Background
A member of the RNA family "Small nucleolar RNA Z112" from Leersia perrieri, 174 nucleotides long. It is annotated as a C/D-box small nucleolar RNA.
RNA sequence: UUCCCAGUGAGGAAUCCAAGACCUACUGAUAGUAAGUGUCGUAUGAUGCUGUAAACAGCAGCUGCUUUUCUCCUUUGCAAGGUGUCCAUCCUUCGACCAUCACCUUGUUGGUUUGGUCUGGGUUGGAGUACUCAUUUGCUUGCGUGUGUGAUUUUAAAUGGGUUUCCUAGGGAU
Numbered sequence: 001u002u003c004c005c006a007g008u009g010a011g012g013a014a015u016c017c018a019a020g021a022c023c024u025a026c027u028g029a030u031a032g033u034a035a036g037u038g039u040c041g042u043a044u045g046a047u048g049c050u051g052u053a054a055a056c057a058g059c060a061g062c063u064g065c066u067u068u069u070c071u072c073c074u075u076u077g078c079a080a081g082g083u084g085u086c087c088a089u090c091c092u093u094c095g096a097c098c099a100u101c102a103c104c105u106u107g108u109u110g111g112u113u114u115g116g117u118c119u120g121g122g123u124u125g126g127a128g129u130a131c132u133c134a135u136u137u138g139c140u141u142g143c144g145u146g147u148g149u150g151a152u153u154u155u156a157a158a159u160g161g162g163u164u165u166c167c168u169a170g171g172g173a174u
Base pairs, nucleotide, nucleotide: 002173003172004171005170077139078138079137080136082135083134084133085127086126087125088124090122091121095118096117097116098115099114102112103111104110
A search with the family's covariance model found it, with a score of 140 bits. The family's consensus secondary structure was predicted with PFOLD. A reference for the family is Liang et al. (2002), "A novel gene organization: intronic snoRNA gene clusters from Oryza sativa", Nucleic Acids Res.